Shown here is a 118-nucleotide RNA from Anaerosolibacter carboniphilus, a member of the family "FMN riboswitch aptamer (RFN element)". NCBI's taxonomy places the organism under Bacteria, Bacillati, Peptostreptococcales, Thermotaleaceae, Anaerosolibacter. Rfam describes the family as follows. The RFN element is a highly conserved domain that is found frequently in the 5'-untranslated regions of prokaryotic mRNAs that encode for flavin mononucleotide (FMN) biosynthesis and transport proteins. The base pairs follow the family's consensus structure, which is taken from published work.
RNA sequence: UAGAACCUUCAGGGCAGGGUGUAAUUCCCGACCGGCGGUAAAGUCCGCGAGCGACGAAAGUUGCAGAACUGGUGUAAUUCCAGUACCGACAGUAAAGUCUGGAUGGAAGAAGGUGCAU
Dot-bracket structure: ..(.((((((......(((.......))).[[((((((....[[))))..(((........)))...(((((.......)))))]])).(((....]]))).......)))))).)..